Rfam assigns this 114-nucleotide RNA sequence from Chunga burmeisteri to the family "U5 spliceosomal RNA". A reference for the family is Zwieb (1997), "The uRNA database", Nucleic Acids Res. From the family's description: U5 RNA is a component of both types of known spliceosome. Pairs were carried over by alignment from the consensus structure, which is taken from published work. It scores 69 bits against the family's covariance model.

RNA sequence: CUAUCUGGUUUCUCUUCAGAUCAUAUAAAUCUUUCAUCUUUUACUAAAGAUUUCCAUGGAGAAGAACAAGCACAAAUGUCAAAGAAUUUUUUGAGGGUCCAUUUUGAUGGAGCU
Numbered sequence: 001c002u003a004u005c006u007g008g009u010u011u012c013u014c015u016u017c018a019g020a021u022c023a024u025a026u027a028a029a030u031c032u033u034u035c036a037u038c039u040u041u042u043a044c045u046a047a048a049g050a051u052u053u054c055c056a057u058g059g060a061g062a063a064g065a066a067c068a069a070g071c072a073c074a075a076a077u078g079u080c081a082a083a084g085a086a087u088u089u090u091u092u093g094a095g096g097g098u099c100c101a102u103u104u105u106g107a108u109g110g111a112g113c114u
Stems, first nucleotide, its partner, number of pairs: 003077002006074001008067004013062006027053008094114001096113001098111004